[Rfam]
RNA sequence: AGUAUCAUGCCCGCGCCAGCCAUCAAUAGCUUUCACCGUUGGUGGCGGUGCGUUUAAUUACGCGCGUGAAUUCUUUUCCGAACUUU
Number, nucleotide and partner (000 for none) at each position: 001a000002g000003u000004a000005u000006c000007a000008u000009g000010c000011c000012c000013g000014c000015g049016c048017c047018a000019g046020c045021c044022a043023u042024c041025a040026a039027u038028a000029g000030c000031u000032u000033u000034c000035a000036c000037c000038g027039u026040u025041g024042g023043u022044g021045g020046c019047g017048g016049u015050g065051c064052g063053u062054u000055u060056a000057a000058u000059u000060a055061c000062g053063c052064g051065c050066g000067u000068g000069a000070a000071u000072u000073c000074u000075u000076u000077u000078c000079c000080g000081a000082a000083c000084u000085u000086u000

Shown here is an 86-nucleotide RNA from Cronobacter sakazakii, a member of the family "Peptidase-S11 RNA". The family's consensus secondary structure is taken from published work. Rfam classes the family as a cis-regulatory element.